[Rfam]
RNA sequence: CAACUGAAGAGUUUGAUCAUGGCUCAGAUUGAACGCUGGCGGCAGGCUUAACACAUGCAAGUCGAGCGGAAACGAUGGGUGCUUGCACCCAGGCGUCGAGCGGCGGACGGGUGAGUAAUGCAUAGGAAUCUGCCCGGUAGUGGGGGAUAACCUGGGGAAACCCAGGCUAAUACCGCAUACGUCCUACGGGAGAAAGCAGGGGACCUUCGGGCCUUGCGCUAUCGGAUGAGCCUAUGUCGGAUUAGCUGGUUGGUGAGGUAACGGCUCACCAAGGCGACGAUCCGUAGCUGGUCUGAGAGGAUGAUCAGCCACAUCGGGACUGAGACACGGCCCGAACUCCUACGGGAGGCAGCAGUGGGGAAUAUUGGACAAUGGGCGCAAGCCUGAUCCAGCCAUGCCGCGUGUGUGAAGAAGGCCUUCGGGUUGUAAAGCACUUUCAGUGAGGAAGAACGCCGGUCGGUUAAUACCCGGCCGGGGAGACAUCACUCACAGAAGAAGCACCGGCUAACUCCGUGCCAGCAGCCGCGGUAAUACGGAGGGUGCGAGCGUUAAUCGGAAUUACUG
Numbered sequence: 001c002a003a004c005u006g007a008a009g010a011g012u013u014u015g016a017u018c019a020u021g022g023c024u025c026a027g028a029u030u031g032a033a034c035g036c037u038g039g040c041g042g043c044a045g046g047c048u049u050a051a052c053a054c055a056u057g058c059a060a061g062u063c064g065a066g067c068g069g070a071a072a073c074g075a076u077g078g079g080u081g082c083u084u085g086c087a088c089c090c091a092g093g094c095g096u097c098g099a100g101c102g103g104c105g106g107a108c109g110g111g112u113g114a115g116u117a118a119u120g121c122a123u124a125g126g127a128a129u130c131u132g133c134c135c136g137g138u139a140g141u142g143g144g145g146g147a148u149a150a151c152c153u154g155g156g157g158a159a160a161c162c163c164a165g166g167c168u169a170a171u172a173c174c175g176c177a178u179a180c181g182u183c184c185u186a187c188g189g190g191a192g193a194a195a196g197c198a199g200g201g202g203a204c205c206u207u208c209g210g211g212c213c214u215u216g217c218g219c220u221a222u223c224g225g226a227u228g229a230g231c232c233u234a235u236g237u238c239g240g241a242u243u244a245g246c247u248g249g250u251u252g253g254u255g256a257g258g259u260a261a262c263g264g265c266u267c268a269c270c271a272a273g274g275c276g277a278c279g280a281u282c283c284g285u286a287g288c289u290g291g292u293c294u295g296a297g298a299g300g301a302u303g304a305u306c307a308g309c310c311a312c313a314u315c316g317g318g319a320c321u322g323a324g325a326c327a328c329g330g331c332c333c334g335a336a337c338u339c340c341u342a343c344g345g346g347a348g349g350c351a352g353c354a355g356u357g358g359g360g361a362a363u364a365u366u367g368g369a370c371a372a373u374g375g376g377c378g379c380a381a382g383c384c385u386g387a388u389c390c391a392g393c394c395a396u397g398c399c400g401c402g403u404g405u406g407u408g409a410a411g412a413a414g415g416c417c418u419u420c421g422g423g424u425u426g427u428a429a430a431g432c433a434c435u436u437u438c439a440g441u442g443a444g445g446a447a448g449a450a451c452g453c454c455g456g457u458c459g460g461u462u463a464a465u466a467c468c469c470g471g472c473c474g475g476g477g478a479g480a481c482a483u484c485a486c487u488c489a490c491a492g493a494a495g496a497a498g499c500a501c502c503g504g505c506u507a508a509c510u511c512c513g514u515g516c517c518a519g520c521a522g523c524c525g526c527g528g529u530a531a532u533a534c535g536g537a538g539g540g541u542g543c544g545a546g547c548g549u550u551a552a553u554c555g556g557a558a559u560u561a562c563u564g
Stems, first nucleotide, its partner, number of pairs: 009025005027554004032550006039401006045394002047359001052357003056354003061104003066101002069097002076091006111312003120237007129229002134225007142176001144174002151166006182191003196217006238284003245275003250272008287309004291302004314335005337348004365391001367390003373386005404434004414425004438495001440490005448481001454475001456473001498543005509538005519526002
Bacterial small subunit ribosomal RNA: a 564-nucleotide part of an RNA from Halomonas cerina. The organism belongs to Halomonas, within Bacteria. The literature on the family includes a 2002 paper in BMC Bioinformatics by Cannone et al., "The comparative RNA web (CRW) site: an online database of comparative sequence and structure information for ribosomal, intron, and other RNAs". Its family is annotated with structural constituent of ribosome and ribosome in the Gene Ontology.